The record is a 245-nucleotide part of an RNA from Candidatus Micrarchaeum acidiphilum, which matches "Archaeal large subunit ribosomal RNA" in Rfam.
Clan: LSU clan.
Rfam 15.1 lists 2,955 matches to the family in 1,139 species.
The organism belongs to Candidatus Micrarchaeum acidiphilum, within Archaea.
A reference for the family is Yusupov et al. (2001), "Crystal structure of the ribosome at 5.5 A resolution", Science.
RNA sequence: UAGUGCCGGAGGAUAAGAUCCCUUUAAUACGAGAGGAACGAGGGAUCGGCGCCACUGGUGUACCGGUUGUGAUUGCAUUGCCGGGUAGCUACGCGCCAAAUGGAUAAGUCCUGAAAGCAUCUAAGGACGAAGCUAUACCCGAAACGAGGCACUAUGGGCGGUCGCAAUAGACGACUUCGAUAGGACGGGUGCGUAAGCAGAGAGCUCACGCGAUCUGUGAACAUUCCGUUACUAAAGCCUAAUUA
Numbered sequence: 001u002a003g004u005g006c007c008g009g010a011g012g013a014u015a016a017g018a019u020c021c022c023u024u025u026a027a028u029a030c031g032a033g034a035g036g037a038a039c040g041a042g043g044g045a046u047c048g049g050c051g052c053c054a055c056u057g058g059u060g061u062a063c064c065g066g067u068u069g070u071g072a073u074u075g076c077a078u079u080g081c082c083g084g085g086u087a088g089c090u091a092c093g094c095g096c097c098a099a100a101u102g103g104a105u106a107a108g109u110c111c112u113g114a115a116a117g118c119a120u121c122u123a124a125g126g127a128c129g130a131a132g133c134u135a136u137a138c139c140c141g142a143a144a145c146g147a148g149g150c151a152c153u154a155u156g157g158g159c160g161g162u163c164g165c166a167a168u169a170g171a172c173g174a175c176u177u178c179g180a181u182a183g184g185a186c187g188g189g190u191g192c193g194u195a196a197g198c199a200g201a202g203a204g205c206u207c208a209c210g211c212g213a214u215c216u217g218u219g220a221a222c223a224u225u226c227c228g229u230u231a232c233u234a235a236a237g238c239c240u241a242a243u244u245a
Stems, first nucleotide, its partner, number of pairs: 001154007011140002014137001017047008048097005056091003063084005068077003101135003108128005156240004160176005181234003184230005189224003194219001197218005204211001